[Rfam]
The family of this 87-nucleotide sequence from Aegilops tauschii is "MIR1120/MIR1122 microRNA precursor family".
It scores 91 bits against the family's covariance model.
Rfam 15.1 lists 44,765 matches to the family in 8 species.
NCBI's taxonomy places the organism under Eukaryota, Streptophyta, Petrosaviidae, Triticodae, Aegilops tauschii.
The family's consensus secondary structure was predicted with RNAalifold.

RNA sequence: UUACUCCCUCCGUCCCAUAAUGUAAGGCGUUUAUUGACUCUAUUGUAGUGUCAAAAAACGUCUUACAUUAUGGGACGGAGGGAGUAC
Number, nucleotide and partner (000 for none) at each position: 001u000002u000003a085004c084005u083006c000007c081008c080009u079010c078011c077012g000013u075014c074015c073016c072017a071018u000019a069020a068021u067022g066023u065024a064025a063026g062027g061028c060029g059030u058031u057032u056033a000034u054035u053036g052037a051038c050039u000040c048041u047042a000043u000044u000045g000046u000047a041048g040049u000050g038051u037052c036053a035054a034055a000056a032057a031058a030059c029060g028061u027062c026063u025064u024065a023066c022067a021068u020069u019070a000071u017072g016073g015074g014075a013076c000077g011078g010079a009080g008081g007082g000083a005084g004085u003086a000087c000